The family of this 35-nucleotide sequence from Flavobacterium sp. 9AF is "DUF805b RNA". Taxonomically the source falls in Flavobacterium (Bacteria, Bacteroidota, Flavobacteriia, Flavobacteriales). The family's consensus secondary structure is taken from published work.

RNA sequence: AGGGAGAAGUCCGAAAAGCCCAAAAAGAGUAGGAA
Dot-bracket structure: .(((.....[[[......)))..........]]].